[Rfam]
RNA: SAM-I/IV (S-adenosyl methionine) riboswitch aptamer
RNA sequence: UUCGUGCAUCAAGAGAAGGACUGACGUCCUCACCAACCUGCCGACCUGGGCAAGGUGGUGCCAGAACCGAUACAGGAAACAUUUUGUUUAAGUCAAUAAUGUCGAUUACCAA
Numbered sequence: 001u002u003c004g005u006g007c008a009u010c011a012a013g014a015g016a017a018g019g020a021c022u023g024a025c026g027u028c029c030u031c032a033c034c035a036a037c038c039u040g041c042c043g044a045c046c047u048g049g050g051c052a053a054g055g056u057g058g059u060g061c062c063a064g065a066a067c068c069g070a071u072a073c074a075g076g077a078a079a080c081a082u083u084u085u086g087u088u089u090a091a092g093u094c095a096a097u098a099a100u101g102u103c104g105a106u107u108a109c110c111a112a
Base pairs, nucleotide, nucleotide: 006073008071009070010069015031017030018029019028020027021026032059033058034057037055038054039053040051041050042049075110076109078107